RNA sequence: GGGCUUUCCUUUGUGCUUGAUCUAACCAUGUGGUGGAACAAUAUAAACAGAACAUGGUUCUGUCAAGCACCACGGAAGGCU
Numbered sequence: 001g002g003g004c005u006u007u008c009c010u011u012u013g014u015g016c017u018u019g020a021u022c023u024a025a026c027c028a029u030g031u032g033g034u035g036g037a038a039c040a041a042u043a044u045a046a047a048c049a050g051a052a053c054a055u056g057g058u059u060c061u062g063u064c065a066a067g068c069a070c071c072a073c074g075g076a077a078g079g080c081u
Stems, first nucleotide, its partner, number of pairs: 002081008013070007024059008
RNA: mir-218 microRNA precursor family
Organism: Ornithorhynchus anatinus